Glycine riboswitch aptamer: a 97-nucleotide sequence from Paenibacillus pectinilyticus. Rfam links the family to the GO term glycine biosynthetic process. The source organism's lineage runs through Bacteria, Bacillota, Bacilli, Paenibacillaceae and Paenibacillus. Rfam's curators write: This family represents the bacterial glycine riboswitch. It scores 75 bits against the family's covariance model.
[Rfam]
RNA sequence: AUGAGGAUACAGGGAGAGACUGCCGAGCACGUUGGCAGCGCCGAAGGAGUAAGCCCACAGUGGUGAAUCUCUCAGGCAAAAGGACCUGUAUCGGACG
Numbered sequence: 001a002u003g004a005g006g007a008u009a010c011a012g013g014g015a016g017a018g019a020c021u022g023c024c025g026a027g028c029a030c031g032u033u034g035g036c037a038g039c040g041c042c043g044a045a046g047g048a049g050u051a052a053g054c055c056c057a058c059a060g061u062g063g064u065g066a067a068u069c070u071c072u073c074a075g076g077c078a079a080a081a082g083g084a085c086c087u088g089u090a091u092c093g094g095a096c097g
Stems, first nucleotide, its partner, number of pairs: 006092008020038006040077003043073002047071003053064002